[Rfam]
RNA sequence: ACACUUCACAUUAAGCGGGCAGGGCCUAUAUGGGUCCUGCCCGUUUUUUGCGGGCUAUGGCGAUAAACUGCGCUGUGCAAUAGGUACAACGGACCCGGGGGCAGUACCCGGCGGCUCCACCACAAUCCGCGCCGUUGCGCGGGUUCUGACGGGGCCGAACUAGGAUCGACGUGUGCUGAAAGACAGUGUUUUCGUCCGGGCUGAGUAUCCCGUAAAAAUGUUCACAACACACAAGUGCCAACGAUAACGAAGCACUCGCUCUCGCAGCGUAAUUUUAUGGCCUAACGGCCUGAAUUUACAAAGCUAAAGCGCGGUUGGACCCACCGGGCAACAGAAGCGGAUUCC
Numbered sequence: 001a002c003a004c005u006u007c008a009c010a011u012u013a014a015g016c017g018g019g020c021a022g023g024g025c026c027u028a029u030a031u032g033g034g035u036c037c038u039g040c041c042c043g044u045u046u047u048u049u050g051c052g053g054g055c056u057a058u059g060g061c062g063a064u065a066a067a068c069u070g071c072g073c074u075g076u077g078c079a080a081u082a083g084g085u086a087c088a089a090c091g092g093a094c095c096c097g098g099g100g101g102c103a104g105u106a107c108c109c110g111g112c113g114g115c116u117c118c119a120c121c122a123c124a125a126u127c128c129g130c131g132c133c134g135u136u137g138c139g140c141g142g143g144u145u146c147u148g149a150c151g152g153g154g155c156c157g158a159a160c161u162a163g164g165a166u167c168g169a170c171g172u173g174u175g176c177u178g179a180a181a182g183a184c185a186g187u188g189u190u191u192u193c194g195u196c197c198g199g200g201c202u203g204a205g206u207a208u209c210c211c212g213u214a215a216a217a218a219u220g221u222u223c224a225c226a227a228c229a230c231a232c233a234a235g236u237g238c239c240a241a242c243g244a245u246a247a248c249g250a251a252g253c254a255c256u257c258g259c260u261c262u263c264g265c266a267g268c269g270u271a272a273u274u275u276u277a278u279g280g281c282c283u284a285a286c287g288g289c290c291u292g293a294a295u296u297u298a299c300a301a302a303g304c305u306a307a308a309g310c311g312c313g314g315u316u317g318g319a320c321c322c323a324c325c326g327g328g329c330a331a332c333a334g335a336a337g338c339g340g341a342u343u344c345c
Base pairs, nucleotide, nucleotide: 039055040054041053042052043051059196060195061194062193063192070189071188072187073186074185075184076183085175086174087173089172090171091170095111096110097109098108099107112157113156114155115154116153117152118151197212198211199210200209202224203223204222312326313325314324315323317343318342320340321339
RNA: Alphaproteobacteria transfer-messenger RNA
Organism: Qipengyuania flava